[Rfam]
RNA: small nucleolar RNA snoR114
RNA sequence: GGGCUGUGAAGAUGUUUGCGCAUCUGGGAUGGUAGGGUCCAUCACCAUCAUCUGCAAACUGAUGAUAAACCGCGCAGCUGAGCUC
Numbered sequence: 001g002g003g004c005u006g007u008g009a010a011g012a013u014g015u016u017u018g019c020g021c022a023u024c025u026g027g028g029a030u031g032g033u034a035g036g037g038u039c040c041a042u043c044a045c046c047a048u049c050a051u052c053u054g055c056a057a058a059c060u061g062a063u064g065a066u067a068a069a070c071c072g073c074g075c076a077g078c079u080g081a082g083c084u085c
Stems, first nucleotide, its partner, number of pairs: 001085004